Rfam assigns this 69-nucleotide sequence from Paractinoplanes ferrugineus to the family "ASpks TB sRNA". It scores 69 bits against the family's covariance model. NCBI's taxonomy places the organism under Bacteria, Bacillati, Actinomycetes, Micromonosporales, Paractinoplanes. On this family, see Arnvig and Young, Mol Microbiol 2009: "Identification of small RNAs in Mycobacterium tuberculosis". The family has 77 seed sequences and 9,052 matches in Rfam 15.1.
[Rfam]
RNA sequence: CUUGAGCGAGCCGAGCCACAACGGCUCGUCCCGGUCCUGGCCGUACACCGCCAGCAACGCCUGCGCCUC
Numbered sequence: 001c002u003u004g005a006g007c008g009a010g011c012c013g014a015g016c017c018a019c020a021a022c023g024g025c026u027c028g029u030c031c032c033g034g035u036c037c038u039g040g041c042c043g044u045a046c047a048c049c050g051c052c053a054g055c056a057a058c059g060c061c062u063g064c065g066c067c068u069c
Base pairs, nucleotide, nucleotide: 014026015025016024017023031065032059033058037054038053039052041050043048